[Rfam]
A member of the RNA family "HIV gag stem loop 3 (GSL3)" from Lentivirus humimdef1, 84 nucleotides long. The source organism's lineage runs through Viruses, Artverviricota, Revtraviricetes, Lentivirus and Lentivirus humimdef1. This family consists of several HIV gag stem loop 3 (GSL3) sequences. GSL3 is known to direct specific packaging of HIV-1 genomic RNA. Deletion of GSL3 leads to decreases in both viral RNA packaging and dimerisation. A reference for the family is Damgaard et al. (2004), "RNA interactions in the 5' region of the HIV-1 genome", J Mol Biol. Rfam's curators put it in the seed alignment. The family's consensus secondary structure was predicted with PFOLD.
RNA sequence: GGCCAGGGGGAAGUAAAAGAUAUAAGCUAAAACAUAUAGUAUGGGCAGGCAGGGAACUAGAACGAUUCGCGGUUAAUCCUGGCC
Number, nucleotide and partner (000 for none) at each position: 001g084002g083003c082004c081005a080006g079007g078008g077009g000010g000011a000012a000013g000014u000015a000016a000017a000018a000019g000020a000021u000022a000023u000024a000025a000026g000027c000028u000029a000030a000031a000032a000033c000034a000035u000036a000037u000038a000039g000040u000041a000042u000043g000044g000045g000046c000047a000048g000049g000050c000051a000052g000053g000054g000055a000056a000057c000058u000059a000060g000061a000062a000063c000064g000065a000066u000067u000068c000069g000070c000071g000072g000073u000074u000075a000076a000077u008078c007079c006080u005081g004082g003083c002084c001